[Rfam]
RNA sequence: UCCACUGUGACGUGGAAUCUGAAGGAAGCGGGCAGAAAAUUCCGCUCUGAGAAACACGAACUUCAUAUAAGGCUAGGUGGCCACUGGAAGUCUACAACACAGGACAAAGUCCUUAUUGCCAAAGGUGACACAGAGUAAGUAAAGCAGAUAAGUGAGACUGUGUUCGU
Numbered sequence: 001u002c003c004a005c006u007g008u009g010a011c012g013u014g015g016a017a018u019c020u021g022a023a024g025g026a027a028g029c030g031g032g033c034a035g036a037a038a039a040u041u042c043c044g045c046u047c048u049g050a051g052a053a054a055c056a057c058g059a060a061c062u063u064c065a066u067a068u069a070a071g072g073c074u075a076g077g078u079g080g081c082c083a084c085u086g087g088a089a090g091u092c093u094a095c096a097a098c099a100c101a102g103g104a105c106a107a108a109g110u111c112c113u114u115a116u117u118g119c120c121a122a123a124g125g126u127g128a129c130a131c132a133g134a135g136u137a138a139g140u141a142a143a144g145c146a147g148a149u150a151a152g153u154g155a156g157a158c159u160g161u162g163u164u165c166g167u
Stems, first nucleotide, its partner, number of pairs: 001016005028167005035159001043152001046148004061144003065140002072136003077131003081127001086112003090105004